[Rfam]
RNA sequence: GUACACCCCAAGGGAGUGGCACCUGAGAACACCGGUUGUGUUGGCUGCGCCAAGCUCUGCUAGCUAAUGCAUUUUGUGUUCUCAGGUCACCCCUUUGGGGCACCA
Numbered sequence: 001g002u003a004c005a006c007c008c009c010a011a012g013g014g015a016g017u018g019g020c021a022c023c024u025g026a027g028a029a030c031a032c033c034g035g036u037u038g039u040g041u042u043g044g045c046u047g048c049g050c051c052a053a054g055c056u057c058u059g060c061u062a063g064c065u066a067a068u069g070c071a072u073u074u075u076g077u078g079u080u081c082u083c084a085g086g087u088c089a090c091c092c093c094u095u096u097g098g099g100g101c102a103c104c105a
Stems, first nucleotide, its partner, number of pairs: 007099002011095004016090004025083008034074001
The family of this 105-nucleotide RNA sequence from Vitis vinifera is "MIR398 microRNA precursor family". NCBI's taxonomy places the organism under Eukaryota, Magnoliopsida, Gunneridae, Viteae, Vitis. Pairs were carried over by alignment from the consensus structure, which was predicted with WAR. The family has 14 seed sequences and 627 matches in Rfam 15.1.